[Rfam]
RNA sequence: UAAGUUAACCAGGUGAUCGCGGCCUUUUUGGCUGAGGAAAGUCCGAGCUCCACAGGACAGGAUGCUGGGUAAUUCCCAGUGGAGGUAACUCCCAGGAAAGUGCCACAGAAAUAUACCGCCUUAUUUUAAUAAGGUAAGGGUGAAAAGGUAAGGUAAGAGCUUACCAGGUUUCAGGUGACUGGAAUGCUAGGUAAACCCCAUCUGGAGUAAGUCCAAAUAGGGAGAAUGAGGAGUGGUCCGCUCUUCUCCGGGUAAGGACGCUCAAACUAAUAGGUAACUAUUAGUUAAGAUAGAUGAUCGCCUAAUACAGAACUCGGCUUACAGGUUAACUUAUUAU
Number, nucleotide and partner (000 for none) at each position: 001u333002a332003a331004g330005u329006u328007a327008a326009c325010c324011a000012g302013g301014u300015g299016a298017u297018c296019g000020c034021g033022g032023c031024c030025u000026u000027u000028u000029u000030g024031g023032c022033u021034g020035a000036g000037g000038a000039a320040a319041g318042u000043c317044c316045g315046a314047g313048c207049u206050c205051c204052a000053c000054a000055g239056g238057a237058c236059a000060g203061g202062a201063u200064g199065c079066u078067g077068g076069g075070u000071a000072a000073u000074u000075c069076c068077c067078a066079g065080u094081g092082g091083a090084g089085g000086u000087a000088a000089c084090u083091c082092c081093c000094a080095g198096g197097a000098a000099a000100g196101u195102g192103c191104c190105a000106c000107a000108g000109a000110a000111a000112u000113a000114u000115a000116c139117c138118g135119c134120c133121u132122u131123a130124u129125u000126u000127u000128a000129a124130u123131a122132a121133g120134g119135u118136a000137a000138g117139g116140g000141u000142g000143a000144a000145a000146a000147g165148g164149u163150a162151a161152g160153g000154u000155a000156a000157g000158a000159g000160c152161u151162u150163a149164c148165c147166a000167g187168g185169u184170u183171u182172c181173a180174g179175g000176u000177g000178a000179c174180u173181g172182g171183a170184a169185u168186g000187c167188u000189a000190g104191g103192u102193a000194a000195a101196c100197c096198c095199c064200a063201u062202c061203u060204g051205g050206a049207g048208u000209a000210a000211g259212u258213c257214c256215a000216a000217a000218u000219a000220g000221g249222g248223a247224g246225a245226a244227u000228g000229a000230g000231g243232a242233g241234u240235g000236g058237u057238c056239c055240g234241c233242u232243c231244u226245u225246c224247u223248c222249c221250g000251g000252g000253u000254a000255a000256g214257g213258a212259c211260g000261c000262u000263c000264a000265a000266a285267c284268u283269a282270a281271u280272a279273g278274g000275u000276a000277a000278c273279u272280a271281u270282u269283a268284g267285u266286u000287a000288a000289g000290a000291u000292a000293g000294a000295u000296g018297a017298u016299c015300g014301c013302c012303u000304a000305a000306u000307a000308c000309a000310g000311a000312a000313c047314u046315c045316g044317g043318c041319u040320u039321a000322c000323a000324g010325g009326u008327u007328a006329a005330c004331u003332u002333a001334u000335u000336a000337u000